A member of the RNA family "c-di-GMP-I riboswitch aptamer" from Lactonifactor longoviformis, 93 nucleotides long. Taxonomically the source falls in Lactonifactor longoviformis (Bacteria, Bacillati, Bacillota, Eubacteriales). The family's consensus secondary structure is taken from published work.
RNA sequence: GUACAUAUUUGGCACAGCUGUCGAAAGGCAGUGUCGCAAAGCUAUAGGGGUUUCUCUUUUCCGUAAGUGAAAGAAAGCCAGCCAGUUGUUUGA
Numbered sequence: 001g002u003a004c005a006u007a008u009u010u011g012g013c014a015c016a017g018c019u020g021u022c023g024a025a026a027g028g029c030a031g032u033g034u035c036g037c038a039a040a041g042c043u044a045u046a047g048g049g050g051u052u053u054c055u056c057u058u059u060u061c062c063g064u065a066a067g068u069g070a071a072a073g074a075a076a077g078c079c080a081g082c083c084a085g086u087u088g089u090u091u092g093a
Base pairs, nucleotide, nucleotide: 012037013036017032018031019030020029021028022027040087041086042085043084047083048082049079050078051077056073057072058071059070